A member of the RNA family "MIR480 microRNA precursor family" from Salix brachista, 110 nucleotides long.

RNA sequence: UAAUUUGUUUCGGUUAAAUCCUUAUUUAGUAAUAUGGAUUACUCAUAUUUGACCACUAAGAAUCACUCAUUACUGUGUGAACCAUAACUUUUUAAGAUUUUAAUUGGAGC
Numbered sequence: 001u002a003a004u005u006u007g008u009u010u011c012g013g014u015u016a017a018a019u020c021c022u023u024a025u026u027u028a029g030u031a032a033u034a035u036g037g038a039u040u041a042c043u044c045a046u047a048u049u050u051g052a053c054c055a056c057u058a059a060g061a062a063u064c065a066c067u068c069a070u071u072a073c074u075g076u077g078u079g080a081a082c083c084a085u086a087a088c089u090u091u092u093u094a095a096g097a098u099u100u101u102a103a104u105u106g107g108a109g110c
Stems, first nucleotide, its partner, number of pairs: 004108004008103002012099001014097002018093001025087001027084001029082002033080001
The source organism's lineage runs through Eukaryota, Mesangiospermae, Malpighiales, Salicaceae and Salix.